[Rfam]
RNA sequence: UUUUAUGGUCAAUCGCUGCAUUUGAAAAUAAUGUAGAGGAAACUCCACGCUUACACAAUCUGUGAUGAUUGUAGUGAUUAUGCUAUACGAAAAAAUAAGUAUAGGCAAUGUUAUACAUUGACGGCAUAAAUAACCUAAAAUUUUUAUAAUCACGGUAAUUUUAUAAAGGUGCCACAGAGACGAGUAAAAGGGAAACCUUUAGAUGGAACGCGGUAAACCCCAUAAGUAAGAAACUUAAAUUUUGGUAAAGGAACUCUAAAAACAGAAACGAAUGUUUUAAGAGAAGAUCUUUUUGAUCUUAGAUAGAUGAUUGACACCUUAGGGUACAAAACGUGGGUUAUAGUA
Numbered sequence: 001u002u003u004u005a006u007g008g009u010c011a012a013u014c015g016c017u018g019c020a021u022u023u024g025a026a027a028a029u030a031a032u033g034u035a036g037a038g039g040a041a042a043c044u045c046c047a048c049g050c051u052u053a054c055a056c057a058a059u060c061u062g063u064g065a066u067g068a069u070u071g072u073a074g075u076g077a078u079u080a081u082g083c084u085a086u087a088c089g090a091a092a093a094a095a096u097a098a099g100u101a102u103a104g105g106c107a108a109u110g111u112u113a114u115a116c117a118u119u120g121a122c123g124g125c126a127u128a129a130a131u132a133a134c135c136u137a138a139a140a141u142u143u144u145u146a147u148a149a150u151c152a153c154g155g156u157a158a159u160u161u162u163a164u165a166a167a168g169g170u171g172c173c174a175c176a177g178a179g180a181c182g183a184g185u186a187a188a189a190g191g192g193a194a195a196c197c198u199u200u201a202g203a204u205g206g207a208a209c210g211c212g213g214u215a216a217a218c219c220c221c222a223u224a225a226g227u228a229a230g231a232a233a234c235u236u237a238a239a240u241u242u243u244g245g246u247a248a249a250g251g252a253a254c255u256c257u258a259a260a261a262a263c264a265g266a267a268a269c270g271a272a273u274g275u276u277u278u279a280a281g282a283g284a285a286g287a288u289c290u291u292u293u294u295g296a297u298c299u300u301a302g303a304u305a306g307a308u309g310a311u312u313g314a315c316a317c318c319u320u321a322g323g324g325u326a327c328a329a330a331a332c333g334u335g336g337g338u339u340a341u342a343g344u345a
Stems, first nucleotide, its partner, number of pairs: 004345003007341001008315007016036006041339003045336005050230005055072006078225005083104006105122001106120006123220002127163003133156003140150002169218002171214003187200005234250003254283004259278002284300006317324002
The family of this 345-nucleotide sequence from Mesoplasma corruscae is "Bacterial RNase P class B". It scores 255 bits against the family's covariance model. The literature on the family includes a 1998 paper in Annu Rev Biochem by Frank and Pace, "Ribonuclease P: unity and diversity in a tRNA processing ribozyme". Taxonomically the source falls in Mesoplasma (Bacteria, Mycoplasmatota, Mollicutes, Entomoplasmatales). Rfam's curators write: Ribonuclease P (RNase P) is a ubiquitous endoribonuclease, found in archaea, bacteria and eukarya as well as chloroplasts and mitochondria. Its best characterised activity is the generation of mature 5'-ends of tRNAs by cleaving the 5'-leader elements of precursor-tRNAs.